This 127-nucleotide sequence from Phyllostomus discolor belongs to the Rfam family "Small nucleolar RNA SNORA63". E3 belongs to the H/ACA class of snoRNAs and is involved in the processing of eukaryotic pre-rRNA and has regions of complementarity to 18S rRNA. E3 is encoded in introns in the gene for protein synthesis initiation factor 4AII. The source organism's lineage runs through Eukaryota, Bilateria, Laurasiatheria, Chiroptera and Phyllostomus. The literature on the family includes a 1997 paper in Proc Natl Acad Sci U S A by Mishra and Eliceiri, "Three small nucleolar RNAs that are involved in ribosomal RNA precursor processing". Rfam classes the family as an H/ACA-box small nucleolar RNA. Gene Ontology terms of the family: nucleolus and RNA processing. It scores 108 bits against the family's covariance model.
[Rfam]
RNA sequence: AUGCAGGUACUGUUACAAUACAACUGAAGUGUUUUAUUGUCGUUCCCCCUGCUUAAAACAACUGAUGCAUAACUAUCUCUGUCUAGCACAAUUCCAUAGCAAGACAGAGACGCUUGGUGUCAAACAU
Number, nucleotide and partner (000 for none) at each position: 001a000002u000003g052004c051005a050006g049007g048008u000009a000010c000011u000012g000013u000014u000015a040016c039017a038018a037019u036020a035021c000022a033023a032024c031025u000026g000027a000028a000029g000030u000031g024032u023033u022034u000035u020036a019037u018038u017039g016040u015041c000042g000043u000044u000045c000046c000047c000048c007049c006050u005051g004052c003053u000054u000055a000056a000057a000058a000059c000060a000061a000062c000063u000064g000065a000066u000067g000068c000069a000070u000071a000072a000073c000074u000075a000076u000077c000078u108079c107080u106081g105082u000083c103084u102085a000086g100087c099088a000089c000090a000091a000092u000093u000094c000095c000096a000097u000098a000099g087100c086101a000102a084103g083104a000105c081106a080107g079108a078109g000110a000111c000112g000113c000114u000115u000116g000117g000118u000119g000120u000121c000122a000123a000124a000125c000126a000127u000